[Rfam]
This 100-nucleotide sequence belongs to the Rfam family "wcaG RNA". The sequence is in the family's curated seed alignment. Rfam classes the family as a cis-regulatory element.
RNA sequence: AAAGAGUCGGUAUCUCGAUAAACUAGCCCUGGUCGGGAUGGGUUGACCCCCCUCCGCUGGUUUCUUGCUUCCAGUCAAAGAGCAAGUGGCGCGGCAUGAU
Numbered sequence: 001a002a003a004g005a006g007u008c009g010g011u012a013u014c015u016c017g018a019u020a021a022a023c024u025a026g027c028c029c030u031g032g033u034c035g036g037g038a039u040g041g042g043u044u045g046a047c048c049c050c051c052c053u054c055c056g057c058u059g060g061u062u063u064c065u066u067g068c069u070u071c072c073a074g075u076c077a078a079a080g081a082g083c084a085a086g087u088g089g090c091g092c093g094g095c096a097u098g099a100u
Stems, first nucleotide, its partner, number of pairs: 009029002011025002040052003055074001058073003064086006